[Rfam]
RNA: mir-393 microRNA precursor family
Organism: Cajanus cajan
RNA sequence: GGAGGAGGCAUCCAAAGGGAUCGCAUUGAUCCCAAAUCAAAGCUUUCAUGUUAUCUCUUCCCACUCACCAAUAUUUAUUUGGGAUCAUGCUAUCCCUUUGGAUUUCUCCUU
Numbered sequence: 001g002g003a004g005g006a007g008g009c010a011u012c013c014a015a016a017g018g019g020a021u022c023g024c025a026u027u028g029a030u031c032c033c034a035a036a037u038c039a040a041a042g043c044u045u046u047c048a049u050g051u052u053a054u055c056u057c058u059u060c061c062c063a064c065u066c067a068c069c070a071a072u073a074u075u076u077a078u079u080u081g082g083g084a085u086c087a088u089g090c091u092a093u094c095c096c097u098u099u100g101g102a103u104u105u106c107u108c109c110u111u
Stems, first nucleotide, its partner, number of pairs: 002111005008105001010103012023090004028086005036079001